[Rfam]
Nucleotides: 121
Base pairs, nucleotide, nucleotide: 028055029054030053031052032051034043035042036041088106089105090104091103092102093101094100095099
Number, partner (000 for none) and nucleotide at each position: 001000a002000a003000u004000g005000c006000c007000g008000c009000a010000a011000u012000c013000a014000a015000u016000a017000u018000a019000c020000c021000g022000u023000a024000g025000a026000c027000a028055g029054u030053a031052a032051c033000u034043g035042a036041c037000g038000c039000a040000a041036g042035u043034c044000u045000c046000a047000a048000u049000u050000u051032g052031u053030u054029a055028c056000c057000g058000a059000g060000g061000g062000a063000u064000a065000u066000u067000g068000u069000c070000a071000u072000g073000u074000a075000u076000g077000a078000a079000a080000a081000u082000g083000a084000c085000a086000a087000a088106c089105c090104c091103c092102u093101a094100g095099g096000u097000a098000a099095u100094c101093u102092a103091g104090g105089g106088g107000u108000u109000u110000u111000u112000a113000u114000a115000u116000a117000a118000c119000g120000c121000g
The record is a 121-nucleotide sequence from Catenibacterium sp. CAG:290, which matches "Ribosomal protein L10 leader" in Rfam. From the family's description: This family is a putative r-protein leader autoregulatory structure found in B. subtilis and other low-GC Gram-positive bacteria. It is located in the 5' untranslated regions of mRNAs encoding ribosomal proteins L10 and L12 (rplJ-rplL). A Rho-independent transcription terminator structure that is probably involved in regulation is included at the 3' end. A search with the family's covariance model found it, with a score of 59 bits. The base pairs follow the family's consensus structure, which was predicted with CMfinder.